[Rfam]
RNA sequence: CUUUAACAAUCCGGAACAAGCUGAAAAUUGAAACGACAUGUCGUUUUCAUUCUCCGUAAAUAAGAAUGAAAUCAACGAUAUGUUCGAGUCUCUCAAAUGCUCGCAACAGCAAUGUGUCCUCCGGGACGCUUGUG
Numbered sequence: 001c002u003u004u005a006a007c008a009a010u011c012c013g014g015a016a017c018a019a020g021c022u023g024a025a026a027a028u029u030g031a032a033a034c035g036a037c038a039u040g041u042c043g044u045u046u047u048c049a050u051u052c053u054c055c056g057u058a059a060a061u062a063a064g065a066a067u068g069a070a071a072u073c074a075a076c077g078a079u080a081u082g083u084u085c086g087a088g089u090c091u092c093u094c095a096a097a098u099g100c101u102c103g104c105a106a107c108a109g110c111a112a113u114g115u116g117u118c119c120u121c122c123g124g125g126a127c128g129c130u131u132g133u134g
Stems, first nucleotide, its partner, number of pairs: 020104002023102002027098003034086003038083004109133003114129003
Salmonella enterica Typhi npcRNA 44: a 134-nucleotide RNA sequence from Erwinia sorbitola. Lineage of the source: Bacteria > Pseudomonadota > Gammaproteobacteria > Erwiniaceae > Erwinia. For this family Rfam cites "Experimental identification and characterization of 97 novel npcRNA candidates in Salmonella enterica serovar Typhi" (Chinni et al., Nucleic Acids Res, 2010). Rfam classes the family as a non-coding RNA gene. Rfam 15.1 lists 474 matches to the family in 137 species.